The family of this 590-nucleotide part of an RNA from Methanothermobacter tenebrarum is "Archaeal large subunit ribosomal RNA". The source organism's lineage runs through Archaea, Methanobacteriati, Methanobacteriales, Methanobacteriaceae and Methanothermobacter.

RNA sequence: CUCCCAGUGGGAAGCGAAGACCCCGUAGAGCUUUACUGCAGUCUGCCGUUGGGGCUUGGUUACAGGUAUGCAGCGUAGGUGGGAGGCGUCGAUGUCAUGGUCGCCAGGCCAUGGCGGAGCCGUCCAUGAGACACCACCUUCCUGUGACUGUGUCUCUAACCCUCACCCUAGAGUGGGGGGACAUCGGUAGAUGGGCAGUUUGGCUGGGGCGGCACGCCCUUGAAACGAUAUCAAGGGCGCCCUAAGGUCGGCUCAGGUGGGUCAGAAAUCCACCGUAGAGUGUAAGGGCAAAAGCCGGCCUGACUGUGCCCCUAACAGUAGGGGGUGCAGGGGCGAAAGCCGGGCCUAGCGAACCCCAGUGUCCUCCUCGGUGGGGGCCUGGGAUGACAGAAAAGCUACCUCGGGGAUAACUGGGUGGUCGCAGGCAAGAGCCCAUAUCGACCCUGCGGCUUGCUACUUCGAUGUCGGUUCUUUCCAUCCUGGGUGUGCAGCAGCACCCAAGGGUGGGGUUGUUCGCCCAUUAAAGGGGAACGUGAGCUGGGUUUAGACCGUCGUGAGACAGGUUGGUUGCUAUCUACUGGGAGUGUUUU
Numbered sequence: 001c002u003c004c005c006a007g008u009g010g011g012a013a014g015c016g017a018a019g020a021c022c023c024c025g026u027a028g029a030g031c032u033u034u035a036c037u038g039c040a041g042u043c044u045g046c047c048g049u050u051g052g053g054g055c056u057u058g059g060u061u062a063c064a065g066g067u068a069u070g071c072a073g074c075g076u077a078g079g080u081g082g083g084a085g086g087c088g089u090c091g092a093u094g095u096c097a098u099g100g101u102c103g104c105c106a107g108g109c110c111a112u113g114g115c116g117g118a119g120c121c122g123u124c125c126a127u128g129a130g131a132c133a134c135c136a137c138c139u140u141c142c143u144g145u146g147a148c149u150g151u152g153u154c155u156c157u158a159a160c161c162c163u164c165a166c167c168c169u170a171g172a173g174u175g176g177g178g179g180g181a182c183a184u185c186g187g188u189a190g191a192u193g194g195g196c197a198g199u200u201u202g203g204c205u206g207g208g209g210c211g212g213c214a215c216g217c218c219c220u221u222g223a224a225a226c227g228a229u230a231u232c233a234a235g236g237g238c239g240c241c242c243u244a245a246g247g248u249c250g251g252c253u254c255a256g257g258u259g260g261g262u263c264a265g266a267a268a269u270c271c272a273c274c275g276u277a278g279a280g281u282g283u284a285a286g287g288g289c290a291a292a293a294g295c296c297g298g299c300c301u302g303a304c305u306g307u308g309c310c311c312c313u314a315a316c317a318g319u320a321g322g323g324g325g326u327g328c329a330g331g332g333g334c335g336a337a338a339g340c341c342g343g344g345c346c347u348a349g350c351g352a353a354c355c356c357c358a359g360u361g362u363c364c365u366c367c368u369c370g371g372u373g374g375g376g377g378c379c380u381g382g383g384a385u386g387a388c389a390g391a392a393a394a395g396c397u398a399c400c401u402c403g404g405g406g407a408u409a410a411c412u413g414g415g416u417g418g419u420c421g422c423a424g425g426c427a428a429g430a431g432c433c434c435a436u437a438u439c440g441a442c443c444c445u446g447c448g449g450c451u452u453g454c455u456a457c458u459u460c461g462a463u464g465u466c467g468g469u470u471c472u473u474u475c476c477a478u479c480c481u482g483g484g485u486g487u488g489c490a491g492c493a494g495c496a497c498c499c500a501a502g503g504g505u506g507g508g509g510u511u512g513u514u515c516g517c518c519c520a521u522u523a524a525a526g527g528g529g530a531a532c533g534u535g536a537g538c539u540g541g542g543u544u545u546a547g548a549c550c551g552u553c554g555u556g557a558g559a560c561a562g563g564u565u566g567g568u569u570g571c572u573a574u575c576u577a578c579u580g581g582g583a584g585u586g587u588u589u590u
Stems, first nucleotide, its partner, number of pairs: 001584008010576003014571002022405004027401002029397005035199004042191007051156005057150010068139001078138005085121003098111005160179007202215001203213003216238006241344002247299006253279002256274006280289002304330009332341001334339001355383005361378001363377004414455003418452001419449007429439002466541001467539004471533001472530005479504002483498005507519004547565004551560003